[Rfam]
RNA sequence: CGCCUUCAUCAAGAGAAGGGCUGGCGCCCUCGCCAACCUGCCUGACCGGGCAAGGUGGUUUCCGCAAUAGGGAUGUGGCCGGGAAACCGGCAACCAAGCGGUUCUUU
Numbered sequence: 001c002g003c004c005u006u007c008a009u010c011a012a013g014a015g016a017a018g019g020g021c022u023g024g025c026g027c028c029c030u031c032g033c034c035a036a037c038c039u040g041c042c043u044g045a046c047c048g049g050g051c052a053a054g055g056u057g058g059u060u061u062c063c064g065c066a067a068u069a070g071g072g073a074u075g076u077g078g079c080c081g082g083g084a085a086a087c088c089g090g091c092a093a094c095c096a097a098g099c100g101g102u103u104c105u106u107u
Stems, first nucleotide, its partner, number of pairs: 007075004015031001017030005032059003037055003040051003044103005078091004

The family of this 107-nucleotide RNA sequence from Stappia albiluteola is "SAM-I/IV (S-adenosyl methionine) riboswitch aptamer". Lineage of the source: Bacteria > Pseudomonadati > Alphaproteobacteria > Stappiaceae > Stappia. The literature on the family includes a 2008 paper in RNA by Weinberg et al., "The aptamer core of SAM-IV riboswitches mimics the ligand-binding site of SAM-I riboswitches". The base pairs follow the family's consensus structure, which is taken from published work.